[Rfam]
RNA sequence: CCAUUUGCAUCCGGUCGGCAGCAGGCCUAUAUAGGAACUGCUCGCAAGAGCUAUGGCGAUAAAUUGUCAUCGUAAUAAACCAUUCGGACCCGGGGGCAGUACCCGGCGCCUCCACCAUCUACCCGUUCAGGCGGGCAGCCAAUGGGGGCGAAACAGGAUCGACGAGGGUGUAAAGGGUGUGCUUUUGCUCGGUUGGGUACCGCCGUUAUCGGUCUAAAACUUAUAGUUGCAAAUGACAACAAUAAGGCUCCAGUCGCUCUCGCUGCGUAAGCAGUGCUAGCAUUGGGAAAUUAAGUCCUCCACCCCUAGCCGGGUGACAGGCGGGGUUCGCAGGCACCUGGCAACAGAAGCCUGCACU
Numbered sequence: 001c002c003a004u005u006u007g008c009a010u011c012c013g014g015u016c017g018g019c020a021g022c023a024g025g026c027c028u029a030u031a032u033a034g035g036a037a038c039u040g041c042u043c044g045c046a047a048g049a050g051c052u053a054u055g056g057c058g059a060u061a062a063a064u065u066g067u068c069a070u071c072g073u074a075a076u077a078a079a080c081c082a083u084u085c086g087g088a089c090c091c092g093g094g095g096g097c098a099g100u101a102c103c104c105g106g107c108g109c110c111u112c113c114a115c116c117a118u119c120u121a122c123c124c125g126u127u128c129a130g131g132c133g134g135g136c137a138g139c140c141a142a143u144g145g146g147g148g149c150g151a152a153a154c155a156g157g158a159u160c161g162a163c164g165a166g167g168g169u170g171u172a173a174a175g176g177g178u179g180u181g182c183u184u185u186u187g188c189u190c191g192g193u194u195g196g197g198u199a200c201c202g203c204c205g206u207u208a209u210c211g212g213u214c215u216a217a218a219a220c221u222u223a224u225a226g227u228u229g230c231a232a233a234u235g236a237c238a239a240c241a242a243u244a245a246g247g248c249u250c251c252a253g254u255c256g257c258u259c260u261c262g263c264u265g266c267g268u269a270a271g272c273a274g275u276g277c278u279a280g281c282a283u284u285g286g287g288a289a290a291u292u293a294a295g296u297c298c299u300c301c302a303c304c305c306c307u308a309g310c311c312g313g314g315u316g317a318c319a320g321g322c323g324g325g326g327u328u329c330g331c332a333g334g335c336a337c338c339u340g341g342c343a344a345c346a347g348a349a350g351c352c353u354g355c356a357c358u
Stems, first nucleotide, its partner, number of pairs: 040051004055189005066182002068179004080168002084165003090106005107150007190205004196215002199213003324339004330355006